[Rfam]
RNA: Bacterial large subunit ribosomal RNA, nucleotides 859 to 1305
Organism: Allobosea sp. Root381
RNA sequence: CUCCGCGAAAGCUAUUUAGGUAGCGCCUCGCGUGAAUACUCUCGGGGGUAGAGCACUGGAUGGGUGAGGGGUGCUUACCGCAUUACCAAUCCUAACCAAACUCCGAAUACCGAGAAGUACUGCGCGGGAGACACACGGCGGGUGCUAACGUCCGUCGUGGAGAGGGAAACAACCCUGACUUACAGCUAAGGCCCCCAAUUCGUGGCUAAGUGUGAAAGGAUGUGGGAAUCCCAAAACAACCAGGAGGUUGGCUUAGAAGCAGCCAUCCUUUAAAGAAAGCGUAACAGCUCACUGGUCUAAACAAGGGUUCCUGCGCCGAAAAUGUAUCGGGGCUCAAGCCACGAGCCGAAGCUUAAGGUUUGCACUUUGUGCAAGCGGUAGCGGAGCGUUCCAUAAGCCGACGAAGGCGGACCCGUGAGGGCUGCUGGAGGUAUUGGAAGUGCGAAU
Numbered sequence: 001c002u003c004c005g006c007g008a009a010a011g012c013u014a015u016u017u018a019g020g021u022a023g024c025g026c027c028u029c030g031c032g033u034g035a036a037u038a039c040u041c042u043c044g045g046g047g048g049u050a051g052a053g054c055a056c057u058g059g060a061u062g063g064g065u066g067a068g069g070g071g072u073g074c075u076u077a078c079c080g081c082a083u084u085a086c087c088a089a090u091c092c093u094a095a096c097c098a099a100a101c102u103c104c105g106a107a108u109a110c111c112g113a114g115a116a117g118u119a120c121u122g123c124g125c126g127g128g129a130g131a132c133a134c135a136c137g138g139c140g141g142g143u144g145c146u147a148a149c150g151u152c153c154g155u156c157g158u159g160g161a162g163a164g165g166g167a168a169a170c171a172a173c174c175c176u177g178a179c180u181u182a183c184a185g186c187u188a189a190g191g192c193c194c195c196c197a198a199u200u201c202g203u204g205g206c207u208a209a210g211u212g213u214g215a216a217a218g219g220a221u222g223u224g225g226g227a228a229u230c231c232c233a234a235a236a237c238a239a240c241c242a243g244g245a246g247g248u249u250g251g252c253u254u255a256g257a258a259g260c261a262g263c264c265a266u267c268c269u270u271u272a273a274a275g276a277a278a279g280c281g282u283a284a285c286a287g288c289u290c291a292c293u294g295g296u297c298u299a300a301a302c303a304a305g306g307g308u309u310c311c312u313g314c315g316c317c318g319a320a321a322a323u324g325u326a327u328c329g330g331g332g333c334u335c336a337a338g339c340c341a342c343g344a345g346c347c348g349a350a351g352c353u354u355a356a357g358g359u360u361u362g363c364a365c366u367u368u369g370u371g372c373a374a375g376c377g378g379u380a381g382c383g384g385a386g387c388g389u390u391c392c393a394u395a396a397g398c399c400g401a402c403g404a405a406g407g408c409g410g411a412c413c414c415g416u417g418a419g420g421g422c423u424g425c426u427g428g429a430g431g432u433a434u435u436g437g438a439a440g441u442g443c444g445a446a447u
Stems, first nucleotide, its partner, number of pairs: 001386006011024005026130001027128007036121001040115006051104001052102002057098003061094004068087002070084005134159010164175003179357004184353003190347003199344001201343006218317002222314010239296005245269003250264003270274001275290001279288002358376008387442001389439005397432003406426005412421003